[Rfam]
RNA sequence: AAACCUCUGACAUAAUCUGUGUAUGUUU
Numbered sequence: 001a002a003a004c005c006u007c008u009g010a011c012a013u014a015a016u017c018u019g020u021g022u023a024u025g026u027u028u
Base pairs, nucleotide, nucleotide: 001028002027003026004025008023010020011019012018
A member of the RNA family "L19-Flavobacteria ribosomal protein leader" from Gorilla gorilla, 28 nucleotides long.
Taxonomically the source falls in Gorilla gorilla (Eukaryota, Eumetazoa, Craniata, Hominidae).
The family's RNA type in Rfam is cis-regulatory leader.